[Rfam]
RNA sequence: AGAUGGAAUAAAAAGGCAGGGAAUGGGUAGAGCAUGGGAGAGGUCAUCAACAGAAUAGGCCUGUUGUUGCCCGUCCCCUGCACUGCCUCUUCCCUGGCUCUAUCUCUCUCUUAACU
Numbered sequence: 001a002g003a004u005g006g007a008a009u010a011a012a013a014a015g016g017c018a019g020g021g022a023a024u025g026g027g028u029a030g031a032g033c034a035u036g037g038g039a040g041a042g043g044u045c046a047u048c049a050a051c052a053g054a055a056u057a058g059g060c061c062u063g064u065u066g067u068u069g070c071c072c073g074u075c076c077c078c079u080g081c082a083c084u085g086c087c088u089c090u091u092c093c094c095u096g097g098c099u100c101u102a103u104c105u106c107u108c109u110c111u112u113a114a115c116u
Stems, first nucleotide, its partner, number of pairs: 014099002017096007025088006032081003036077002042071001
Dot-bracket structure: .............((.(((((((.((((((.(((.((....(............................)....)).))).)))))).))))))).)).................